[Rfam]
Fluoride riboswitch aptamer (crcB RNA motif): a 61-nucleotide sequence from Candidatus Brocadia sinica. For this family Rfam cites "Widespread genetic switches and toxicity resistance proteins for fluoride" (Baker et al., Science, 2012).
RNA sequence: UAAAAUUCAGGCGAUGGAGUUCGCCAAUUGCUAUAUGAUAGCUGAUAACUCCUAUUGAAGC
Numbered sequence: 001u002a003a004a005a006u007u008c009a010g011g012c013g014a015u016g017g018a019g020u021u022c023g024c025c026a027a028u029u030g031c032u033a034u035a036u037g038a039u040a041g042c043u044g045a046u047a048a049c050u051c052c053u054a055u056u057g058a059a060g061c
Stems, first nucleotide, its partner, number of pairs: 010025004016052006030042004
Pairs were carried over by alignment from the consensus structure, which is taken from published work.
The match comes from Rfam's covariance-model search (43 bits).